[Rfam]
RNA sequence: GCCGGACGCGGUGGCGCGUGUCUGUAAUCCUGGCUUCUCGGGAGGCUGAGGUUGAAGGAUCGCUUGAGCUCAGGAGCCCUGGGUGGCAGUAGCCUGUGUCGAUCGGGUGUCCGAGCUAAGUUCGGCAUCGAUAUGGUGCUCCUGGGGGAGCCCGGGGCUGCCAGGUCGUUUAAGGAGGGGCGAACCGGCCCAGGUCGGAAACGGAGCAGGUCAAAGUCCCCGUGUCGGUCAGUAGCGGAUCGCGCCCGUGAGCAGGCGCUGUGACUCAGCCUGAGUAAGAGAGCGGGACGCAGCCUCUA
Numbered sequence: 001g002c003c004g005g006a007c008g009c010g011g012u013g014g015c016g017c018g019u020g021u022c023u024g025u026a027a028u029c030c031u032g033g034c035u036u037c038u039c040g041g042g043a044g045g046c047u048g049a050g051g052u053u054g055a056a057g058g059a060u061c062g063c064u065u066g067a068g069c070u071c072a073g074g075a076g077c078c079c080u081g082g083g084u085g086g087c088a089g090u091a092g093c094c095u096g097u098g099u100c101g102a103u104c105g106g107g108u109g110u111c112c113g114a115g116c117u118a119a120g121u122u123c124g125g126c127a128u129c130g131a132u133a134u135g136g137u138g139c140u141c142c143u144g145g146g147g148g149a150g151c152c153c154g155g156g157g158c159u160g161c162c163a164g165g166u167c168g169u170u171u172a173a174g175g176a177g178g179g180g181c182g183a184a185c186c187g188g189c190c191c192a193g194g195u196c197g198g199a200a201a202c203g204g205a206g207c208a209g210g211u212c213a214a215a216g217u218c219c220c221c222g223u224g225u226c227g228g229u230c231a232g233u234a235g236c237g238g239a240u241c242g243c244g245c246c247c248g249u250g251a252g253c254a255g256g257c258g259c260u261g262u263g264a265c266u267c268a269g270c271c272u273g274a275g276u277a278a279g280a281g282a283g284c285g286g287g288a289c290g291c292a293g294c295c296u297c298u299a
Stems, first nucleotide, its partner, number of pairs: 001046003004023007028043003048297007060286006068276007079269006086262005093256005099250001104248007111238002115236004120230001122228007129168004134163005140157007169175002177220005187212004195204003